[Rfam]
RNA sequence: UAUGUAGGGGCAGGGAAAUAUGCUGUGUUCUCUCUUUCAGUAAAUCCUUGCUUCUCACAGG
Numbered sequence: 001u002a003u004g005u006a007g008g009g010g011c012a013g014g015g016a017a018a019u020a021u022g023c024u025g026u027g028u029u030c031u032c033u034c035u036u037u038c039a040g041u042a043a044a045u046c047c048u049u050g051c052u053u054c055u056c057a058c059a060g061g
Stems, first nucleotide, its partner, number of pairs: 003057002006055006013049003017045001022041003
The record is a 61-nucleotide RNA sequence from Phascolarctos cinereus, which matches "mir-7398 microRNA precursor family" in Rfam. The source organism's lineage runs through Eukaryota, Amniota, Mammalia, Diprotodontia and Phascolarctos. A search with the family's covariance model found it, with a score of 50 bits. Rfam links the family to the GO terms miRNA-mediated post-transcriptional gene silencing and RISC complex. Rfam 15.1 lists 132 matches to the family in 4 species.